[Rfam]
RNA sequence: UCUUCAUUUAGAGAGGGGGAGGGACUUGGCCCUGUGAACCCUCGGCAACCGGCCCGGAUUCCGGGCAAGGUGCCAAAUCCGGAGAAUGUCUGGGGACAUUCAAAGAUGAGGA
Numbered sequence: 001u002c003u004u005c006a007u008u009u010a011g012a013g014a015g016g017g018g019g020a021g022g023g024a025c026u027u028g029g030c031c032c033u034g035u036g037a038a039c040c041c042u043c044g045g046c047a048a049c050c051g052g053c054c055c056g057g058a059u060u061c062c063g064g065g066c067a068a069g070g071u072g073c074c075a076a077a078u079c080c081g082g083a084g085a086a087u088g089u090c091u092g093g094g095g096a097c098a099u100u101c102a103a104a105g106a107u108g109a110g111g112a
Stems, first nucleotide, its partner, number of pairs: 001112008013043005021032003026082004044074004049070002052066004078104001084101006
Background
Rfam assigns this 112-nucleotide RNA from Paenactinomyces guangxiensis to the family "SAM riboswitch aptamer (S box leader)". Pairs were carried over by alignment from the consensus structure, which is taken from published work. The source organism's lineage runs through Bacteria, Bacillati, Bacilli, Thermoactinomycetaceae and Paenactinomyces. The SAM riboswitch is found upstream of a number of genes which code for proteins involved in methionine or cysteine biosynthesis in Gram-positive bacteria.